[Rfam]
The family of this 83-nucleotide sequence is "skipping-rope RNA".
RNA sequence: ACUUCUCGAGGUAGAAAAUUUGUGGCAUCUACACAACUAGAAAUAGGAUUGAGAUGUGGGGUAAGCGACACCCACCGAGAAGU
Numbered sequence: 001a002c003u004u005c006u007c008g009a010g011g012u013a014g015a016a017a018a019u020u021u022g023u024g025g026c027a028u029c030u031a032c033a034c035a036a037c038u039a040g041a042a043a044u045a046g047g048a049u050u051g052a053g054a055u056g057u058g059g060g061g062u063a064a065g066c067g068a069c070a071c072c073c074a075c076c077g078a079g080a081a082g083u
Stems, first nucleotide, its partner, number of pairs: 001083008011032005022069002025066002034051001037046003056075005